[Rfam]
RNA sequence: GUCCCGCCUGCCCAGUGUUCAGACUACCUGUUCAGGAAUUAGUGUUUGUACAGUAGUCUGCACAUUGGUUAGGCUGG
Numbered sequence: 001g002u003c004c005c006g007c008c009u010g011c012c013c014a015g016u017g018u019u020c021a022g023a024c025u026a027c028c029u030g031u032u033c034a035g036g037a038a039u040u041a042g043u044g045u046u047u048g049u050a051c052a053g054u055a056g057u058c059u060g061c062a063c064a065u066u067g068g069u070u071a072g073g074c075u076g077g
Stems, first nucleotide, its partner, number of pairs: 012068007020060007028053004033048002

Rfam assigns this 77-nucleotide sequence from Danio rerio to the family "mir-199 microRNA precursor family".
Rfam's curators write: This family consists of the microRNA (miRNA) precursor mir-199 which appears to be specific to humans. Animal miRNAs are transcribed as ~70nt precursors and subsequently processed by the Dicer enzyme to give a ~22nt product. In this case the mature sequence comes from the 3' arm of the precursor. The extents of the hairpin precursors are not generally known and are estimated based on hairpin prediction.
For this family Rfam cites "microRNAs: tiny regulators with great potential" (Ambros, Cell, 2001).
It is one of the family's seed sequences.
The family has 83 seed sequences and 1,828 matches in Rfam 15.1.